[Rfam]
RNA sequence: AUGUUAUCAAGAAAGGUGGAGGGAUUAGACCCAACGAAACCUUAGCAACCCUUUAGCAAUAAAGAAGGUGCUACAUUCUACUAAAAGCAACGUGUUUUUGGAUAGAUAACCC
Numbered sequence: 001a002u003g004u005u006a007u008c009a010a011g012a013a014a015g016g017u018g019g020a021g022g023g024a025u026u027a028g029a030c031c032c033a034a035c036g037a038a039a040c041c042u043u044a045g046c047a048a049c050c051c052u053u054u055a056g057c058a059a060u061a062a063a064g065a066a067g068g069u070g071c072u073a074c075a076u077u078c079u080a081c082u083a084a085a086a087g088c089a090a091c092g093u094g095u096u097u098u099u100g101g102a103u104a105g106a107u108a109a110c111c112c
Base pairs, nucleotide, nucleotide: 003110004109005108006107007106008105013043014042015041016040017039021032022031023030026080027079028078029077044072045071046070047069049068050067051064052063053062054061076104081101082100083099084098085097086096087095088094
SAM riboswitch aptamer (S box leader): a 112-nucleotide RNA from Mangrovimonas sp. DI 80. Lineage of the source: Bacteria > Bacteroidota > Flavobacteriia > Flavobacteriaceae > Mangrovimonas. Its family is annotated with regulation of gene expression in the Gene Ontology. The match comes from Rfam's covariance-model search (79 bits).